RNA sequence: GGCAAGGGGAACCGCGAUCGCCCCGUGAGGCUUCGGCUGAAGUAUCGCGUCCGCAAUCCCGCGCCGAAGGGAGAGGACGCCCCAUG
Numbered sequence: 001g002g003c004a005a006g007g008g009g010a011a012c013c014g015c016g017a018u019c020g021c022c023c024c025g026u027g028a029g030g031c032u033u034c035g036g037c038u039g040a041a042g043u044a045u046c047g048c049g050u051c052c053g054c055a056a057u058c059c060c061g062c063g064c065c066g067a068a069g070g071g072a073g074a075g076g077a078c079g080c081c082c083c084a085u086g
Base pairs, nucleotide, nucleotide: 006024007023008022009021047080048079049078050077051076052075

About this RNA:
The record is an 86-nucleotide RNA sequence from Muricoccus pecuniae, which matches "chrB-a RNA" in Rfam. Rfam 15.1 lists 347 matches to the family in 339 species. Lineage of the source: Bacteria > Pseudomonadati > Alphaproteobacteria > Acetobacterales > Muricoccus. The match comes from Rfam's covariance-model search (68 bits). The family's RNA type in Rfam is cis-regulatory element.